[Rfam]
RNA sequence: UGAAGCUCCAUCUACAAAUGGAUAAGAUUUCGGUCUUGGUGUCUAUGAGUUUUUGAACGUAAAGGAAAGGAGCAAUAACAAAAUUCUUGUUCGAUCAAGAGGGCGUUAUUGCUCCUUU
Number, nucleotide and partner (000 for none) at each position: 001u000002g000003a000004a000005g000006c000007u022008c021009c020010a019011u018012c000013u000014a000015c000016a000017a000018a011019u010020g009021g008022a007023u000024a000025a000026g000027a000028u000029u000030u000031c000032g000033g000034u000035c000036u000037u000038g000039g000040u000041g000042u000043c000044u000045a000046u000047g000048a000049g000050u000051u000052u000053u000054u000055g000056a000057a000058c000059g000060u000061a000062a000063a000064g000065g000066a118067a117068a116069g115070g114071a113072g112073c111074a110075a109076u108077a107078a106079c000080a000081a000082a000083a000084u101085u100086c099087u098088u097089g000090u000091u000092c000093g000094a000095u000096c000097a088098a087099g086100a085101g084102g000103g000104c000105g000106u078107u077108a076109u075110u074111g073112c072113u071114c070115c069116u068117u067118u066
RNA: Plastid-psbA-1 3UTR RNA